[Rfam]
This 75-nucleotide sequence from Nocardiopsis gilva belongs to the Rfam family "ASpks TB sRNA".
Rfam classes the family as an antisense RNA.
Pairs were carried over by alignment from the consensus structure, which is taken from published work.
A search with the family's covariance model found it, with a score of 85 bits.
RNA sequence: CUUGAUCGAGCCCAGCCACAGCGGCCGGUCGGCCUCGCGGCCCUGCCCGUAGGUGGCGAGGAUCGCCUGCGCCUC
Dot-bracket structure: ..............(((.....)))......((....((...((..(((....)))..))...))...)).....